[Rfam]
Shown here is a 75-nucleotide RNA sequence from Actinobacteria bacterium OK074, a member of the family "ASpks TB sRNA".

RNA sequence: CUUGACCGAGCCGAGCCACAACGGCCGGUCCGCCUGGCGGUCCUGCCCGUACGUGGCGAGCAGCGCCUCCGCCUC
Numbered sequence: 001c002u003u004g005a006c007c008g009a010g011c012c013g014a015g016c017c018a019c020a021a022c023g024g025c026c027g028g029u030c031c032g033c034c035u036g037g038c039g040g041u042c043c044u045g046c047c048c049g050u051a052c053g054u055g056g057c058g059a060g061c062a063g064c065g066c067c068u069c070c071g072c073c074u075c
Stems, first nucleotide, its partner, number of pairs: 015025003031071002038065002043060002047056003